[Rfam]
RNA: Bacteroidales-1 6S-Bacteroidales RNA suggested
RNA sequence: GGUCGUGUCGAUUCGAUUGGGAUACUCAUCAAAUAAUAUGUGAAACCGAGAAGACAUCCUUUGCCAAUGGCGGGCCACAUAAACCGCAUUUGCGACUAAGCUGUAAAGCCAGUGGAUUACAAAGACGGGGAGCUCUCAAAUCUUUUUAAGAUUGGAGUUUCAUCACAUCAUCGAACGACCCUUUUA
Numbered sequence: 001g002g003u004c005g006u007g008u009c010g011a012u013u014c015g016a017u018u019g020g021g022a023u024a025c026u027c028a029u030c031a032a033a034u035a036a037u038a039u040g041u042g043a044a045a046c047c048g049a050g051a052a053g054a055c056a057u058c059c060u061u062u063g064c065c066a067a068u069g070g071c072g073g074g075c076c077a078c079a080u081a082a083a084c085c086g087c088a089u090u091u092g093c094g095a096c097u098a099a100g101c102u103g104u105a106a107a108g109c110c111a112g113u114g115g116a117u118u119a120c121a122a123a124g125a126c127g128g129g130g131a132g133c134u135c136u137c138a139a140a141u142c143u144u145u146u147u148a149a150g151a152u153u154g155g156a157g158u159u160u161c162a163u164c165a166c167a168u169c170a171u172c173g174a175a176c177g178a179c180c181c182u183u184u185u186a
Stems, first nucleotide, its partner, number of pairs: 055132001058130002061128003065124001068121002075115004086093002100109003